[Rfam]
RNA sequence: ACGAGGCCCAUUGCAGCUGCUGACCACUGCACAAGAUUAGAAUAUGACUCUUGUGCGUGUGACAACGGCUAUUGUGGGCAUUCUAACUCAGCGG
Numbered sequence: 001a002c003g004a005g006g007c008c009c010a011u012u013g014c015a016g017c018u019g020c021u022g023a024c025c026a027c028u029g030c031a032c033a034a035g036a037u038u039a040g041a042a043u044a045u046g047a048c049u050c051u052u053g054u055g056c057g058u059g060u061g062a063c064a065a066c067g068g069c070u071a072u073u074g075u076g077g078g079c080a081u082u083c084u085a086a087c088u089c090a091g092c093g094g
Stems, first nucleotide, its partner, number of pairs: 006079006015070005021064002024061001025059002028057006035050002
The record is a 94-nucleotide RNA from Anopheles darlingi, which matches "mir-210 microRNA precursor family" in Rfam. The source organism's lineage runs through Eukaryota, Bilateria, Protostomia, Anophelinae and argyritarsis series.